Source information
Shown here is a 64-nucleotide RNA from Cerebratulus lacteus, a member of the family "mir-1992 microRNA precursor family". Lineage of the source: Eukaryota > Bilateria > Lophotrochozoa > Nemertea > Cerebratulus. Its family is annotated with RISC complex and miRNA-mediated post-transcriptional gene silencing in the Gene Ontology. The family's consensus secondary structure was predicted with RNAalifold.
RNA sequence: CCUCCAUCAGCGGAUGAUUGCUGGUAGUUUUAUACAAAUAUCAGCAGUUGUACCACUGAUGUGU
Numbered sequence: 001c002c003u004c005c006a007u008c009a010g011c012g013g014a015u016g017a018u019u020g021c022u023g024g025u026a027g028u029u030u031u032a033u034a035c036a037a038a039u040a041u042c043a044g045c046a047g048u049u050g051u052a053c054c055a056c057u058g059a060u061g062u063g064u
Base pairs, nucleotide, nucleotide: 003063005061006060007059008058009057010056012054013053014051015050016049017048018047019046020045021044022043023042024041025040026039028038029037